This 123-nucleotide RNA from Edwardsiella hoshinae belongs to the Rfam family "STnc490 Hfq binding RNA".
NCBI's taxonomy places the organism under Bacteria, Pseudomonadati, Gammaproteobacteria, Enterobacterales, Edwardsiella.
The family's RNA type in Rfam is small RNA.
Nucleotides: 123
Stems, first nucleotide, its partner, number of pairs: 002022001004020004009015002029041001031039003061123002064120006070111004077105002082101004087096002
Number, partner (000 for none) and nucleotide at each position: 001000c002022g003000c004020c005019c006018c007017c008000u009015g010014c011000u012000a013000g014010g015009c016000u017007g018006g019005g020004g021000a022002u023000u024000c025000c026000g027000g028000a029041a030000a031039g032038u033037u034000u035000u036000c037033a038032g039031c040000g041029u042000g043000g044000a045000g046000c047000c048000a049000g050000u051000c052000a053000u054000u055000a056000a057000c058000c059000c060000c061123c062122u063000u064120u065119u066118g067117a068116u069115u070111u071110g072109u073108u074000a075000a076000a077105a078104c079000g080000u081000c082101u083100u084099g085098c086000g087096g088095u089000c090000u091000g092000g093000c094000a095088a096087c097000g098085g099084c100083a101082a102000a103000c104078g105077u106000g107000c108073a109072a110071c111070a112000a113000g114000a115069a116068a117067u118066c119065a120064a121000c122062a123061g